[Rfam]
Bacterial small subunit ribosomal RNA: a 348-nucleotide part of an RNA.
It scores 1137 bits against the family's covariance model.
RNA sequence: GGCGUAAAGGGUUUGUAGGUUGUUUUUUAAGUUGAAAGAAACAAAUUAAAGCUCAACUUUAUAUAUUUUUUCAAAACUGAUAAACUGGAGUAUAAAUAGAGGAUAAUGGAAUUUCUAUUGGAGUGAUAAAAUAUGUUGAUAAUAGAAGGAAGAUCUAUGGCGAAGGCAAUUAUCUGGGUAUAUACUGACACUGAGAAACGAAAGCUUGGGUAGCGAACGGGAUUAGAUACCCCGGUAGUCCAUGCUGUAAACGAUGAGUGCUAAUAUUUAGAUUUUUUAGAUAUAACAGCUAACGCGUUAAGCACUCCGCCUGAAAAGUAUAAUCGCAAGAUUGAAAUUCAAAGGAAU
Numbered sequence: 001g002g003c004g005u006a007a008a009g010g011g012u013u014u015g016u017a018g019g020u021u022g023u024u025u026u027u028u029a030a031g032u033u034g035a036a037a038g039a040a041a042c043a044a045a046u047u048a049a050a051g052c053u054c055a056a057c058u059u060u061a062u063a064u065a066u067u068u069u070u071u072c073a074a075a076a077c078u079g080a081u082a083a084a085c086u087g088g089a090g091u092a093u094a095a096a097u098a099g100a101g102g103a104u105a106a107u108g109g110a111a112u113u114u115c116u117a118u119u120g121g122a123g124u125g126a127u128a129a130a131a132u133a134u135g136u137u138g139a140u141a142a143u144a145g146a147a148g149g150a151a152g153a154u155c156u157a158u159g160g161c162g163a164a165g166g167c168a169a170u171u172a173u174c175u176g177g178g179u180a181u182a183u184a185c186u187g188a189c190a191c192u193g194a195g196a197a198a199c200g201a202a203a204g205c206u207u208g209g210g211u212a213g214c215g216a217a218c219g220g221g222a223u224u225a226g227a228u229a230c231c232c233c234g235g236u237a238g239u240c241c242a243u244g245c246u247g248u249a250a251a252c253g254a255u256g257a258g259u260g261c262u263a264a265u266a267u268u269u270a271g272a273u274u275u276u277u278u279a280g281a282u283a284u285a286a287c288a289g290c291u292a293a294c295g296c297g298u299u300a301a302g303c304a305c306u307c308c309g310c311c312u313g314a315a316a317a318g319u320a321u322a323a324u325c326g327c328a329a330g331a332u333u334g335a336a337a338u339u340c341a342a343a344g345g346a347a348u
Stems, first nucleotide, its partner, number of pairs: 001311003009308001011199004016193001018192003022085004027080002030078002032074009047061005089186003093182002096179002101175007112148008123134003160167002204245002207242003213239002218234004256307006264284009289296002313340003322333004